[Rfam]
RNA sequence: GCACCUAUAGCUUAAUUGGAUAAAGCAUUUGACUUCGGAUCAAAAGAGUAUAGGUUCGAGUCCUAUUAGGUGUG
Numbered sequence: 001g002c003a004c005c006u007a008u009a010g011c012u013u014a015a016u017u018g019g020a021u022a023a024a025g026c027a028u029u030u031g032a033c034u035u036c037g038g039a040u041c042a043a044a045a046g047a048g049u050a051u052a053g054g055u056u057c058g059a060g061u062c063c064u065a066u067u068a069g070g071u072g073u074g
Stems, first nucleotide, its partner, number of pairs: 001073007010026004028044005050066005
RNA: tRNA
Organism: Mycoplasma suis